[Rfam]
Rfam assigns this 102-nucleotide sequence from Halalkalibacter hemicellulosilyticus to the family "Purine riboswitch aptamer". A search with the family's covariance model found it, with a score of 82 bits.
RNA sequence: UGAAAAAAGCGAAAUAAACCUCAUAUAUCAUUGGAGAUAGGGUCCAAAAGUUUCUACCCAGUUACCGUAAAUGACUGGACUAUGAGGAAAGGUCGUUGCACU
Numbered sequence: 001u002g003a004a005a006a007a008a009g010c011g012a013a014a015u016a017a018a019c020c021u022c023a024u025a026u027a028u029c030a031u032u033g034g035a036g037a038u039a040g041g042g043u044c045c046a047a048a049a050g051u052u053u054c055u056a057c058c059c060a061g062u063u064a065c066c067g068u069a070a071a072u073g074a075c076u077g078g079a080c081u082a083u084g085a086g087g088a089a090a091g092g093u094c095g096u097u098g099c100a101c102u
Stems, first nucleotide, its partner, number of pairs: 019087007031047005058078007